[Rfam]
RNA: tRNA
Organism: Polyangiaceae bacterium
RNA sequence: GCCCCCGUAGCUCAGUGGAUAGAGCAGCGGUUUCCUAAACCGAAGGUCACAGAUUCGAGUUCUGUCGGGGGCG
Numbered sequence: 001g002c003c004c005c006c007g008u009a010g011c012u013c014a015g016u017g018g019a020u021a022g023a024g025c026a027g028c029g030g031u032u033u034c035c036u037a038a039a040c041c042g043a044a045g046g047u048c049a050c051a052g053a054u055u056c057g058a059g060u061u062c063u064g065u066c067g068g069g070g071g072c073g
Stems, first nucleotide, its partner, number of pairs: 001072007010025004028042004049065005